[Rfam]
RNA: c-di-AMP riboswitch aptamer (ydaO/yuaA leader)
Organism: Streptomyces populi
RNA sequence: UCCGCACACUCACCCGUACACGGCAGGAGCGGGGGACCCACAGGUUCCGUGCCUGGUCCGGUUCCCGGAACAGGCUUGGGGUACAGCCGCGCAGCAGCGCGGCCGGGCAUCUCCAGCCCGCACCCGACAGCUCACCCCGCAGGCGCCGGAGAGGAAUU
Numbered sequence: 001u002c003c004g005c006a007c008a009c010u011c012a013c014c015c016g017u018a019c020a021c022g023g024c025a026g027g028a029g030c031g032g033g034g035g036a037c038c039c040a041c042a043g044g045u046u047c048c049g050u051g052c053c054u055g056g057u058c059c060g061g062u063u064c065c066c067g068g069a070a071c072a073g074g075c076u077u078g079g080g081g082u083a084c085a086g087c088c089g090c091g092c093a094g095c096a097g098c099g100c101g102g103c104c105g106g107g108c109a110u111c112u113c114c115a116g117c118c119c120g121c122a123c124c125c126g127a128c129a130g131c132u133c134a135c136c137c138c139g140c141a142g143g144c145g146c147c148g149g150a151g152a153g154g155a156a157u158u
Base pairs, nucleotide, nucleotide: 001028002027003026029140030139031138032137033136034135039078040077079125080124081123087102088101089100090099105119106118107117108116